[Rfam]
RNA sequence: GGGAGAUGAUGAAUAAUCUUAUUUGGUCCGUGUUUCUGAAUUAUCUGUGAUAGAGAAAUCAUUACCAACCUCUGAUCUC
Dot-bracket structure: ((((.......................................................................))))